[Rfam]
Description: Small nucleolar RNA SNORD115: an 82-nucleotide RNA sequence from Carlito syrichta. For this family Rfam cites "Identification of brain-specific and imprinted small nucleolar RNA genes exhibiting an unusual genomic organization" (Cavaille et al., Proc Natl Acad Sci U S A, 2000). Lineage of the source: Eukaryota > Eumetazoa > Chordata > Euarchontoglires > Carlito. Rfam 15.1 lists 3,387 matches to the family in 131 species. The family's consensus secondary structure was predicted with PFOLD.
RNA sequence: GUGUUAAUUAUUAGUACUUUACAUUGCCCUGAGGAGCAGUGAUGACCUAUAUAUCAAGUACAAUGGCAUGAUGCUGAGGCCC
Dot-bracket structure: (.((((.(................................................................).))..)).)